[Rfam]
Annotation: This 82-nucleotide RNA from Neogobius melanostomus belongs to the Rfam family "Small nucleolar RNA MBII-202". It scores 61 bits against the family's covariance model. The organism belongs to Neogobius, within Eukaryota. The family has 30 seed sequences and 745 matches in Rfam 15.1. The base pairs follow the family's consensus structure, which was predicted with PFOLD.

RNA sequence: UGAUGACAAAUCUCCGGAAUCUCUGUAUUUUCUUGAUGAAAACUUUGAACCUUUUUUCUGAUGACUGCUAAUUUGAAUUACU
Number, nucleotide and partner (000 for none) at each position: 001u000002g082003a000004u080005g079006a078007c000008a000009a000010a000011u000012c000013u000014c000015c000016g000017g000018a000019a000020u000021c000022u000023c000024u000025g000026u000027a000028u000029u000030u000031u000032c000033u000034u000035g000036a000037u000038g000039a000040a000041a000042a000043c000044u000045u000046u000047g000048a000049a000050c000051c000052u000053u000054u000055u000056u000057u000058c000059u000060g000061a000062u000063g000064a000065c000066u000067g000068c000069u000070a000071a000072u000073u000074u000075g000076a000077a000078u006079u005080a004081c000082u002